The family of this 101-nucleotide RNA from Actinacidiphila glaucinigra is "Glycine riboswitch aptamer". Clan: Glycine riboswitch clan. It scores 59 bits against the family's covariance model. Gene Ontology term of the family: glycine biosynthetic process.
RNA sequence: CGAGGCCGCGCGGGAGAGCUUCCGCACCGCUGCGGCGGGCGGGACGCCGAAGGAGCAAGUCCUCCCUUGAAUCUCUCAGGCACAGAUACCGCGCGUUCGAG
Numbered sequence: 001c002g003a004g005g006c007c008g009c010g011c012g013g014g015a016g017a018g019c020u021u022c023c024g025c026a027c028c029g030c031u032g033c034g035g036c037g038g039g040c041g042g043g044a045c046g047c048c049g050a051a052g053g054a055g056c057a058a059g060u061c062c063u064c065c066c067u068u069g070a071a072u073c074u075c076u077c078a079g080g081c082a083c084a085g086a087u088a089c090c091g092c093g094c095g096u097u098c099g100a101g
Stems, first nucleotide, its partner, number of pairs: 007095007020044006046081003049077002053075003059068001

Taxonomically the source falls in Actinacidiphila (Bacteria, Actinomycetes, Kitasatosporales, Streptomycetaceae).